[Rfam]
RNA sequence: GGGCUGUGAUGACUGAUUUCAUUUCUCGAUACUGAUAUUAAAUGUGUUUGGCUUUCUAUAUGGACCUGUAUAAAAGCUUUGUAUUGUCUGUUUGAUGACUGCGUUUGUGCGUGUCUGAGCCUG
Numbered sequence: 001g002g003g004c005u006g007u008g009a010u011g012a013c014u015g016a017u018u019u020c021a022u023u024u025c026u027c028g029a030u031a032c033u034g035a036u037a038u039u040a041a042a043u044g045u046g047u048u049u050g051g052c053u054u055u056c057u058a059u060a061u062g063g064a065c066c067u068g069u070a071u072a073a074a075a076g077c078u079u080u081g082u083a084u085u086g087u088c089u090g091u092u093u094g095a096u097g098a099c100u101g102c103g104u105u106u107g108u109g110c111g112u113g114u115c116u117g118a119g120c121c122u123g
Base pairs, nucleotide, nucleotide: 001122002121003120004119
small nucleolar RNA snoR126: a 123-nucleotide sequence from Ricinus communis. A search with the family's covariance model found it, with a score of 53 bits. The family has 4 seed sequences and 423 matches in Rfam 15.1. Taxonomically the source falls in Ricinus (Eukaryota, Magnoliopsida, eudicotyledons, Malpighiales). It is annotated as a C/D-box small nucleolar RNA. Gene Ontology terms of the family: nucleolus and RNA processing.